[Rfam]
A member of the RNA family "Small nucleolar RNA ZL1" from Rhinolophus ferrumequinum, 202 nucleotides long.

Nucleotides: 202
Stems, first nucleotide, its partner, number of pairs: 004202007014192003026179006036113004041108001043106001045104002048101001055100008065091001067089001071084001073082001075080001115128004131148006150172004155168001157166002
Number, partner (000 for none) and nucleotide at each position: 001000g002000g003000a004202g005201a006200a007199g008198c009197a010196a011000a012000g013000u014192g015191a016190u017000g018000a019000g020000c021000a022000u023000u024000a025000c026179u027178g028177g029176c030175u031174g032000g033000a034000g035000c036113c037112c038111c039110g040000u041108g042000g043106a044000g045104g046103c047000c048101u049000g050000u051000g052000u053000g054000c055100g056099u057098g058097u059096g060095u061094g062093c063000g064000c065091u066000u067089g068000c069000g070000u071084g072000u073082a074000u075080g076000u077000g078000u079000c080075u081000c082073u083000c084071c085000u086000u087000g088000u089067c090000u091065g092000u093062g094061c095060a096059u097058g098057c099056a100055c101048a102000u103046g104045u105000a106043u107000g108041u109000c110039c111038g112037g113036g114000a115128g116127u117126a118125u119000g120000a121000a122000u123000g124000u125118g126117u127116g128115u129000g130000a131148c132147u133146g134145g135144u136143u137000g138000u139000a140000g141000g142000g143136a144135a145134c146133u147132a148131g149000u150172u151171a152170u153169g154000u155168g156000c157166c158165u159000u160000c161000u162000g163000u164000u165158g166157g167000a168155c169153c170152a171151u172150g173000a174031c175030a176029g177028u178027c179026a180000a181000a182000c183000u184000g185000a186000u187000a188000a189000g190016a191015u192014c193000u194000g195000a196010u197009u198008g199007c200006u201005u202004c
Overview
Host gene TRRAP. Predicted target U2@U47. Only GU-rich region is homologous to other known snoRNAs. Conserved in vertebrates. A reference for the family is Kishore et al. (2013), "Insights into snoRNA biogenesis and processing from PAR-CLIP of snoRNA core proteins and small RNA sequencing", Genome Biol.